RNA sequence: CCGUCCAGCCACCAACUCUCGCUCCUCUCUCUCGAUCUGUGGUAGAGGGAGAGGGCUUGGGGUGGACGUAAAGCAGAAUGACUCUUACAUUAGGAGGGCUCUGUUGGAGUGGUGAGCUGCCCUCAAAGGCACAAGAGAACAUC
Number, nucleotide and partner (000 for none) at each position: 001c000002c068003g067004u066005c065006c064007a063008g000009c061010c060011a000012c000013c000014a000015a000016c000017u000018c000019u000020c000021g000022c000023u000024c054025c053026u052027c000028u050029c049030u048031c047032u046033c045034g000035a000036u000037c000038u000039g000040u000041g000042g000043u000044a000045g033046a032047g031048g030049g029050a028051g000052a026053g025054g024055g000056c000057u000058u000059g000060g010061g009062g000063u007064g006065g005066a004067c003068g002069u000070a000071a000072a000073g000074c000075a000076g000077a000078a000079u000080g000081a000082c137083u136084c135085u134086u133087a000088c000089a000090u128091u127092a000093g000094g124095a123096g122097g121098g120099c119100u000101c116102u115103g000104u000105u000106g000107g000108a000109g000110u000111g000112g000113u000114g000115a102116g101117c000118u000119g099120c098121c097122c096123u095124c094125a000126a000127a091128g090129g000130c000131a000132c000133a086134a085135g084136a083137g082138a000139a000140c000141a000142u000143c000
The family of this 143-nucleotide sequence from Pogona vitticeps is "Small Cajal body specific RNA 11". It is annotated as a small Cajal body RNA. For this family Rfam cites "Cajal body-specific small nuclear RNAs: a novel class of 2'-O-methylation and pseudouridylation guide RNAs" (Darzacq et al., EMBO J, 2002). Pairs were carried over by alignment from the consensus structure, which was predicted with RNAalifold. It scores 61 bits against the family's covariance model. From the family's description: scaRNAs are a specific class of small nuclear RNAs which localise to the Cajal bodies and guide the modification of RNA polymerase II transcribed spliceosomal RNAs U1, U2, U4, U5 and U12. ACA57 belongs to the H/ACA box class of guide RNAs as it has the predicted hairpin-hinge-hairpin-tail structure, conserved H/ACA-box motifs and is found associated with GAR1. ACA57 is predicted to guide the pseudouridylation of the U5 spliceosomal RNA at position U43. Its family is annotated with Cajal body, RNA processing and nucleolus in the Gene Ontology.